About this RNA:
SAM-I/IV (S-adenosyl methionine) riboswitch aptamer: a 93-nucleotide RNA from Formosa sp. Hel3_A1_48.

RNA sequence: GUGAUGCAUCAGGAACGCUUUAAGCGUACCAACCGACUUACUCGAAGCACGGUGGUUUAGAAUGCGGGAACUCUCCAAAAUUAACGAGUAAUC
Numbered sequence: 001g002u003g004a005u006g007c008a009u010c011a012g013g014a015a016c017g018c019u020u021u022a023a024g025c026g027u028a029c030c031a032a033c034c035g036a037c038u039u040a041c042u043c044g045a046a047g048c049a050c051g052g053u054g055g056u057u058u059a060g061a062a063u064g065c066g067g068g069a070a071c072u073c074u075c076c077a078a079a080a081u082u083a084a085c086g087a088g089u090a091a092u093c
Stems, first nucleotide, its partner, number of pairs: 006065004015027005028056003033052003037047002040089005067076003
NCBI's taxonomy places the organism under Bacteria, Pseudomonadati, Flavobacteriia, Flavobacteriaceae, Formosa.